This 595-nucleotide part of an RNA from Microthyrium microscopicum belongs to the Rfam family "Eukaryotic small subunit ribosomal RNA".
RNA sequence: AAGUUGUUGCAGUUAAAAAGCUCGUAGUUGAAACUUGGGUCUGGCUGGCCGGUCCGCCUCACCGCGUGUACUGGACUGGCCGGACCUUUCCUUCUGGGGAAGCUCAUGGUCUUUAUUGACUGUGUAGGGGAACCAGGACUUUUACUUUGAAAAAAUUAGAGUGUUCAAAGCAGGCCUUUGCUCGAAUACAUUAGCAUGGAAUAAUGGAAUAGGACGGCCCUCCUAUUUUGUUGGUUUCUAGGAGAGCCGUAAUGAUUAAUAGGGACAGUCGGGGGCAUCAGUAUUCAAUUGUCAGAGGUGAAAUUCUUGGAUUUAUUGAAGACUAACUACUGCGAAAGCAUUUGCCAAGGAUGUUUUCAUUAAUCAGUGAACGAAAGUUAGGGGAUCGAAGACGAUCAGGUAAGAAAUCACGUGAUCACUUUGCAAGUACAAAUAUACUAACAAUUUUAAUAGAUACCGUCGUAGUCUUAACCAUAAACUAUGUCAACUAGGGAUCGGUCGAUGUUAUUUUUUUGACUCGAUCGGCACCUUACGAGAAAUCAAAGUGUUUGGAUUCUGGGGGGAGUAUGGUCGCAAGGCUGAAACUUAAAGAAAU
Numbered sequence: 001a002a003g004u005u006g007u008u009g010c011a012g013u014u015a016a017a018a019a020g021c022u023c024g025u026a027g028u029u030g031a032a033a034c035u036u037g038g039g040u041c042u043g044g045c046u047g048g049c050c051g052g053u054c055c056g057c058c059u060c061a062c063c064g065c066g067u068g069u070a071c072u073g074g075a076c077u078g079g080c081c082g083g084a085c086c087u088u089u090c091c092u093u094c095u096g097g098g099g100a101a102g103c104u105c106a107u108g109g110u111c112u113u114u115a116u117u118g119a120c121u122g123u124g125u126a127g128g129g130g131a132a133c134c135a136g137g138a139c140u141u142u143u144a145c146u147u148u149g150a151a152a153a154a155a156u157u158a159g160a161g162u163g164u165u166c167a168a169a170g171c172a173g174g175c176c177u178u179u180g181c182u183c184g185a186a187u188a189c190a191u192u193a194g195c196a197u198g199g200a201a202u203a204a205u206g207g208a209a210u211a212g213g214a215c216g217g218c219c220c221u222c223c224u225a226u227u228u229u230g231u232u233g234g235u236u237u238c239u240a241g242g243a244g245a246g247c248c249g250u251a252a253u254g255a256u257u258a259a260u261a262g263g264g265a266c267a268g269u270c271g272g273g274g275g276c277a278u279c280a281g282u283a284u285u286c287a288a289u290u291g292u293c294a295g296a297g298g299u300g301a302a303a304u305u306c307u308u309g310g311a312u313u314u315a316u317u318g319a320a321g322a323c324u325a326a327c328u329a330c331u332g333c334g335a336a337a338g339c340a341u342u343u344g345c346c347a348a349g350g351a352u353g354u355u356u357u358c359a360u361u362a363a364u365c366a367g368u369g370a371a372c373g374a375a376a377g378u379u380a381g382g383g384g385a386u387c388g389a390a391g392a393c394g395a396u397c398a399g400g401u402a403a404g405a406a407a408u409c410a411c412g413u414g415a416u417c418a419c420u421u422u423g424c425a426a427g428u429a430c431a432a433a434u435a436u437a438c439u440a441a442c443a444a445u446u447u448u449a450a451u452a453g454a455u456a457c458c459g460u461c462g463u464a465g466u467c468u469u470a471a472c473c474a475u476a477a478a479c480u481a482u483g484u485c486a487a488c489u490a491g492g493g494a495u496c497g498g499u500c501g502a503u504g505u506u507a508u509u510u511u512u513u514u515g516a517c518u519c520g521a522u523c524g525g526c527a528c529c530u531u532a533c534g535a536g537a538a539a540u541c542a543a544a545g546u547g548u549u550u551g552g553a554u555u556c557u558g559g560g561g562g563g564a565g566u567a568u569g570g571u572c573g574c575a576a577g578g579c580u581g582a583a584a585c586u587u588a589a590a591g592a593a594a595u
Stems, first nucleotide, its partner, number of pairs: 010558003018555001020372001022370002027364003262358004266353002269350002274346004280324002284320006291313001295306003332339002377472006387465001391461004483554003487546002490530003495525008504517003534541002560587003569580004
Dot-bracket structure: .........(((.....(.(.((...(((........................................................................................................................................................................................................................................((((((.((...((((..((..((((((.(...(((......)))......).))))))..)).......((....))...))))..)).)).))))...)))....)).)....((((((....(...((((...............................................................))))...).))))))..........(((.((.(((..((((((((.(((........)))))))))))..)))...((....))...)).....))))))).(((......((((....))))....)))........
The family's consensus secondary structure is taken from published work.
A search with the family's covariance model found it, with a score of 1658 bits.
The source organism's lineage runs through Eukaryota, saccharomyceta, dothideomyceta, Microthyriales and Microthyrium.